[Rfam]
RNA sequence: GUGUUUUUUCAUGGUAUUAGAUUUAAGGUUAAAAACAAAAGGGCUGUCGUGAUGACAGCCCUUGUUUUUUG
Numbered sequence: 001g002u003g004u005u006u007u008u009u010c011a012u013g014g015u016a017u018u019a020g021a022u023u024u025a026a027g028g029u030u031a032a033a034a035a036c037a038a039a040a041g042g043g044c045u046g047u048c049g050u051g052a053u054g055a056c057a058g059c060c061c062u063u064g065u066u067u068u069u070u071g
Base pairs, nucleotide, nucleotide: 042060043059044058045057046056047055048054
Description
Shown here is a 71-nucleotide RNA sequence from Muribaculaceae bacterium Isolate-104, a member of the family "Bacteroidetes FopS (family of paralogous sRNAs)". The base pairs follow the family's consensus structure, which is taken from published work. The match comes from Rfam's covariance-model search (70 bits). The RNA-binding protein RbpB and BTncRNA_FopS sRNA are involved in the post-transcription regulation of polysaccharide utilisation loci (PUL). FopS sRNAs function as post-transcriptional repressors by binding to the vicinity of the start codon of the first mRNA of target PUL polycistrons, typically corresponding to the cognate SusC homolog, impeding translation of the respective glycan transporter. For this family Rfam cites "The global RNA-binding protein RbpB is a regulator of polysaccharide utilization in Bacteroides thetaiotaomicron" (Ruttiger et al., Nat Commun, 2025).